A member of the RNA family "MIR845_2 microRNA precursor family" from Vitis rotundifolia, 131 nucleotides long. The family has 2 seed sequences and 180 matches in Rfam 15.1. Its family is annotated with RISC complex and miRNA-mediated post-transcriptional gene silencing in the Gene Ontology. The organism belongs to Vitis, within Eukaryota. The literature on the family includes a 2007 paper in Nature by Jaillon et al., "The grapevine genome sequence suggests ancestral hexaploidization in major angiosperm phyla". The family's consensus secondary structure was predicted with WAR.

RNA sequence: AGAACUCACAUUAAUUAUCCCUAGGGCCAUGAGAUAAACAAAAACCCUACAAAAACAAGUUAACACACCCUAGAAUGGUUCUAGCACGAUUACUAAGCUAUAGCUUUGAUACUAGUUGAAGGGAAAAAUUA
Dot-bracket structure: ........(.((((((.....((((((.(((................(....((.((..(((........)))..)).)).....)............))).)))))).....)))))).)..........
Numbered sequence: 001a002g003a004a005c006u007c008a009c010a011u012u013a014a015u016u017a018u019c020c021c022u023a024g025g026g027c028c029a030u031g032a033g034a035u036a037a038a039c040a041a042a043a044a045c046c047c048u049a050c051a052a053a054a055a056c057a058a059g060u061u062a063a064c065a066c067a068c069c070c071u072a073g074a075a076u077g078g079u080u081c082u083a084g085c086a087c088g089a090u091u092a093c094u095a096a097g098c099u100a101u102a103g104c105u106u107u108g109a110u111a112c113u114a115g116u117u118g119a120a121g122g123g124a125a126a127a128a129u130u131a
Stems, first nucleotide, its partner, number of pairs: 009121001011119006022108006029101003048086001053080002056077002060073003